[Rfam]
RNA sequence: CCCCUUGAUGAAGAGGACUUGGUCUCAUAUAUUCUGACCGGUCUAGAUGAAGACUUCGAUUCAAUCGUUUCUUCACUUGUCUCAAGAGUUGAACCAGUUUCAGUCAACGAAGUGUAUUCCCAGCUUCUCCACUUCGAGA
Number, nucleotide and partner (000 for none) at each position: 001c000002c000003c000004c138005u137006u136007g135008a134009u000010g000011a000012a000013g000014a000015g000016g000017a000018c000019u000020u000021g000022g000023u000024c000025u000026c000027a000028u000029a000030u000031a000032u000033u000034c000035u000036g000037a000038c000039c000040g000041g000042u000043c000044u000045a000046g000047a000048u000049g000050a000051a000052g000053a000054c000055u000056u000057c000058g000059a000060u000061u000062c000063a000064a000065u000066c000067g000068u000069u000070u000071c000072u000073u000074c000075a000076c000077u000078u000079g000080u000081c000082u000083c000084a000085a000086g000087a000088g108089u107090u106091g105092a104093a000094c000095c000096a000097g000098u000099u000100u000101c000102a000103g000104u092105c091106a090107a089108c088109g000110a000111a000112g000113u000114g000115u000116a000117u000118u000119c000120c000121c000122a000123g000124c000125u000126u000127c000128u000129c000130c000131a000132c000133u000134u008135c007136g006137a005138g004139a000
A member of the RNA family "Small nucleolar RNA Z247" from Zizania palustris, 139 nucleotides long. A reference for the family is Chen et al. (2003), "The high diversity of snoRNAs in plants: identification and comparative study of 120 snoRNA genes from Oryza sativa", Nucleic Acids Res.